The record is a 350-nucleotide part of an RNA from Drosophila yakuba, which matches "Eukaryotic large subunit ribosomal RNA" in Rfam. The family's consensus secondary structure is taken from published work. Rfam's curators put it in the seed alignment.

RNA sequence: CAAAACGUUGUUGCGACAGCAUUCCUGCGUAGUACAAGGUCGUAUCCGUGCUGGACUGCAAUGAUAAAUAAGGGGCAAUUUGCAUUGUAUGGCUUCUAAACCAUUUAAAGUUUAUAAUUUACUUUAUAAACGACAAUGGAUCUGAUGCCAAUGUAAUUUGUAACAUAGUAAAUUGGGAGGAUCUUCGAUCACCUGAUGCCGCGCUAGUUACAUAUAAAAGCAUUAUUUAAUACUAUGACAAAGCCUAGAAUCAAUUGUAAACGACUUUUGUAGCAGGCAAGGUGUUGUAAGUGGUUAAGCAGCUGCCAUACUGCGAUCCACUGAAGCUUAUCCUUUGCUUGAUGAUUCGA
Numbered sequence: 001c002a003a004a005a006c007g008u009u010g011u012u013g014c015g016a017c018a019g020c021a022u023u024c025c026u027g028c029g030u031a032g033u034a035c036a037a038g039g040u041c042g043u044a045u046c047c048g049u050g051c052u053g054g055a056c057u058g059c060a061a062u063g064a065u066a067a068a069u070a071a072g073g074g075g076c077a078a079u080u081u082g083c084a085u086u087g088u089a090u091g092g093c094u095u096c097u098a099a100a101c102c103a104u105u106u107a108a109a110g111u112u113u114a115u116a117a118u119u120u121a122c123u124u125u126a127u128a129a130a131c132g133a134c135a136a137u138g139g140a141u142c143u144g145a146u147g148c149c150a151a152u153g154u155a156a157u158u159u160g161u162a163a164c165a166u167a168g169u170a171a172a173u174u175g176g177g178a179g180g181a182u183c184u185u186c187g188a189u190c191a192c193c194u195g196a197u198g199c200c201g202c203g204c205u206a207g208u209u210a211c212a213u214a215u216a217a218a219a220g221c222a223u224u225a226u227u228u229a230a231u232a233c234u235a236u237g238a239c240a241a242a243g244c245c246u247a248g249a250a251u252c253a254a255u256u257g258u259a260a261a262c263g264a265c266u267u268u269u270g271u272a273g274c275a276g277g278c279a280a281g282g283u284g285u286u287g288u289a290a291g292u293g294g295u296u297a298a299g300c301a302g303c304u305g306c307c308a309u310a311c312u313g314c315g316a317u318c319c320a321c322u323g324a325a326g327c328u329u330a331u332c333c334u335u336u337g338c339u340u341g342a343u344g345a346u347u348c349g350a
Stems, first nucleotide, its partner, number of pairs: 007137007018124002023055003027051003057084005062077002087119001096110002146240002149237002248348005253269002257265001274341006280334003284327002291321004299314004